[Rfam]
RNA sequence: AAAAAUCUUCGGGGCAGGGUGAAAUUCCCGACCGACGGUGAUGCGUCUUUUAUGGCGAUAAGUCCGUGACCCGCGUUUGCGGUGGAUGCCGGUGCGAUGCCGGAACCGACAGUAAAGUCUGGAUGGGAGAAGAUUGCA
Numbered sequence: 001a002a003a004a005a006u007c008u009u010c011g012g013g014g015c016a017g018g019g020u021g022a023a024a025u026u027c028c029c030g031a032c033c034g035a036c037g038g039u040g041a042u043g044c045g046u047c048u049u050u051u052a053u054g055g056c057g058a059u060a061a062g063u064c065c066g067u068g069a070c071c072c073g074c075g076u077u078u079g080c081g082g083u084g085g086a087u088g089c090c091g092g093u094g095c096g097a098u099g100c101c102g103g104a105a106c107c108g109a110c111a112g113u114a115a116a117g118u119c120u121g122g123a124u125g126g127g128a129g130a131a132g133a134u135u136g137c138a
Stems, first nucleotide, its partner, number of pairs: 004135007017029003031118002033108002035067004062106002071082002087104001089103004110121003
Overview
This 138-nucleotide RNA sequence from Salicibibacter halophilus belongs to the Rfam family "FMN riboswitch aptamer (RFN element)". The family's consensus secondary structure is taken from published work. Lineage of the source: Bacteria > Bacillota > Bacilli > Bacillaceae > Salicibibacter.